[Rfam]
RNA sequence: UUAUAUGAGAGUUUGAUCCUGGCUCAGGAUGAACGCUGGCGGCGUGCUUAACACAUGCAAGUCGAACGAAGCUGCUUAAAGGAAGUUUUCGGAUGGAAUUUAGGUAGACUUAGUGGCGGACGGGUGAGUAACGCGUGGAUAACCUGCCUUAUACAGGGGGAUAACGGAGAGAAAUUUCCGCUAACACCGCAUAAGACCACAGCACCGCAUGGUGCAGGGGUAAAAUAUUUAUAGGUAUAAGAUGGAUCCGCGUCCGAUUAGCUAGUUGGUGAGGUAGAGGCUCACCAAGGCGACGAUCGGUAGCCGGCCUGAGAGGGUGAACGGCCACAUUGGGACUGAGACACGGCCCAAACUCCUACGGGAGGCAGCAGUGGGGAAUAUUGGACAAUGGGGGAAACCCUGAUCCAGCGACGCCGCGUGAGUGAAGAAGUAUUUCGGUAUGUAAAGCUCUAUCAGCAGGGAAGAAAAUGACGGUACCUGACUAAGAAGCCCCGGCUAACUACGUGCCAGCAGCCGCGGUAAUACGUAGGGGGCAAGCGUUAUCCGGAUUUACUG
Numbered sequence: 001u002u003a004u005a006u007g008a009g010a011g012u013u014u015g016a017u018c019c020u021g022g023c024u025c026a027g028g029a030u031g032a033a034c035g036c037u038g039g040c041g042g043c044g045u046g047c048u049u050a051a052c053a054c055a056u057g058c059a060a061g062u063c064g065a066a067c068g069a070a071g072c073u074g075c076u077u078a079a080a081g082g083a084a085g086u087u088u089u090c091g092g093a094u095g096g097a098a099u100u101u102a103g104g105u106a107g108a109c110u111u112a113g114u115g116g117c118g119g120a121c122g123g124g125u126g127a128g129u130a131a132c133g134c135g136u137g138g139a140u141a142a143c144c145u146g147c148c149u150u151a152u153a154c155a156g157g158g159g160g161a162u163a164a165c166g167g168a169g170a171g172a173a174a175u176u177u178c179c180g181c182u183a184a185c186a187c188c189g190c191a192u193a194a195g196a197c198c199a200c201a202g203c204a205c206c207g208c209a210u211g212g213u214g215c216a217g218g219g220g221u222a223a224a225a226u227a228u229u230u231a232u233a234g235g236u237a238u239a240a241g242a243u244g245g246a247u248c249c250g251c252g253u254c255c256g257a258u259u260a261g262c263u264a265g266u267u268g269g270u271g272a273g274g275u276a277g278a279g280g281c282u283c284a285c286c287a288a289g290g291c292g293a294c295g296a297u298c299g300g301u302a303g304c305c306g307g308c309c310u311g312a313g314a315g316g317g318u319g320a321a322c323g324g325c326c327a328c329a330u331u332g333g334g335a336c337u338g339a340g341a342c343a344c345g346g347c348c349c350a351a352a353c354u355c356c357u358a359c360g361g362g363a364g365g366c367a368g369c370a371g372u373g374g375g376g377a378a379u380a381u382u383g384g385a386c387a388a389u390g391g392g393g394g395a396a397a398c399c400c401u402g403a404u405c406c407a408g409c410g411a412c413g414c415c416g417c418g419u420g421a422g423u424g425a426a427g428a429a430g431u432a433u434u435u436c437g438g439u440a441u442g443u444a445a446a447g448c449u450c451u452a453u454c455a456g457c458a459g460g461g462a463a464g465a466a467a468a469u470g471a472c473g474g475u476a477c478c479u480g481a482c483u484a485a486g487a488a489g490c491c492c493c494g495g496c497u498a499a500c501u502a503c504g505u506g507c508c509a510g511c512a513g514c515c516g517c518g519g520u521a522a523u524a525c526g527u528a529g530g531g532g533g534c535a536a537g538c539g540u541u542a543u544c545c546g547g548a549u550u551u552a553c554u555g
Stems, first nucleotide, its partner, number of pairs: 009025005027545004032541006039417006045410002047375001052373003056370003061117003066114002069110001072107009124328003133253008143245002148241007156190001158188002165180006196221003200217001202215001204213003226233002254300003261291003266288008303325004307318004330351005353364004381407001383406003389402005420450004430441004454486001457480004464472001489534005500529005510517002